Nucleotides: 075
Stems, first nucleotide, its partner, number of pairs: 003071005009040005043072001049062003
Number, partner (000 for none) and nucleotide at each position: 001000u002000u003071c004070g005069u006068u007067c008000a009040u010039c011038u012037u013036g014000c015000c016000a017000c018000a019000g020000a021000c022000g023000a024000u025000u026000c027000a028000g029000c030000c031000a032000g033000u034000g035000a036013c037012g038011a039010g040009a041000c042000g043072g044000a045000a046000g047000u048000a049062a050061g051060c052000g053000a054000u055000u056000a057000c058000g059000u060051g061050c062049u063000g064000a065000a066000g067007g068006a069005a070004c071003g072043c073000a074000a075000g

Shown here is a 75-nucleotide sequence from Oscillatoria sp. FACHB-1406, a member of the family "Glutamine riboswitch aptamer (glnA leader)".
Its family is annotated with glutamine binding in the Gene Ontology.
A reference for the family is Ames and Breaker (2011), "Bacterial aptamers that selectively bind glutamine", RNA Biol.